[Rfam]
Shown here is an 87-nucleotide RNA from Glycine max, a member of the family "MIR3522 microRNA precursor family".
RNA sequence: AGGAUCGUCCUGAGACCAAAUGAGCAGCUGACCACAUGAUGCAGCUAUGUUUGCUAUUCAGCUGCUCAUCUGUUCUCAGGUCGCCCU
Numbered sequence: 001a002g003g004a005u006c007g008u009c010c011u012g013a014g015a016c017c018a019a020a021u022g023a024g025c026a027g028c029u030g031a032c033c034a035c036a037u038g039a040u041g042c043a044g045c046u047a048u049g050u051u052u053g054c055u056a057u058u059c060a061g062c063u064g065c066u067c068a069u070c071u072g073u074u075c076u077c078a079g080g081u082c083g084c085c086c087u
Stems, first nucleotide, its partner, number of pairs: 001087003006083002009080007017072002020069012041050003
The organism belongs to Glycine subgen. Soja, within Eukaryota.
Its family is annotated with RISC complex and miRNA-mediated post-transcriptional gene silencing in the Gene Ontology.
The sequence is in the family's curated seed alignment.